[Rfam]
RNA sequence: GUUGCUUCAUUAUGGUGAACUCUCUCACAUUUAAAUGAGAGAAAUUCAAGUUUCCGGAGCAUAAAUUAAGUAUUUUUAUCGCCAGUAUUUAACAGCUCGAUGUGUCUACCAUUGCAUCGAUGUUACCUGUCUCCUGGUAUAUUU
Numbered sequence: 001g002u003u004g005c006u007u008c009a010u011u012a013u014g015g016u017g018a019a020c021u022c023u024c025u026c027a028c029a030u031u032u033a034a035a036u037g038a039g040a041g042a043a044a045u046u047c048a049a050g051u052u053u054c055c056g057g058a059g060c061a062u063a064a065a066u067u068a069a070g071u072a073u074u075u076u077u078a079u080c081g082c083c084a085g086u087a088u089u090u091a092a093c094a095g096c097u098c099g100a101u102g103u104g105u106c107u108a109c110c111a112u113u114g115c116a117u118c119g120a121u122g123u124u125a126c127c128u129g130u131c132u133c134c135u136g137g138u139a140u141a142u143u144u
Stems, first nucleotide, its partner, number of pairs: 003061006016048004021042005081138005087132001094124003098119005